RNA sequence: GUGGGUUCUCAGGGCGGGGUGAAAUUCCCCACCGGCGGUUACAGCCCGCGAGCGCCAUUCUUCGGAAUGGGUCAGCAGACCCGAUGGAAUUUCGGGGCCGACGGUCAUAGUCCGGAUGGGAGAGAACGAGG
Numbered sequence: 001g002u003g004g005g006u007u008c009u010c011a012g013g014g015c016g017g018g019g020u021g022a023a024a025u026u027c028c029c030c031a032c033c034g035g036c037g038g039u040u041a042c043a044g045c046c047c048g049c050g051a052g053c054g055c056c057a058u059u060c061u062u063c064g065g066a067a068u069g070g071g072u073c074a075g076c077a078g079a080c081c082c083g084a085u086g087g088a089a090u091u092u093c094g095g096g097g098c099c100g101a102c103g104g105u106c107a108u109a110g111u112c113c114g115g116a117u118g119g120g121a122g123a124g125a126a127c128g129a130g131g
Base pairs, nucleotide, nucleotide: 005127006126007125008124009123010122017029018028019027031111032110033100034099035049036048037047038046044098045097052076053075080096081095082094083093084092102114103113104112
Dot-bracket structure: ....((((((......(((.......))).[[((((((.....[[))))..((.....................))...(((((.......)))))]])).(((.....]]))).......))))))....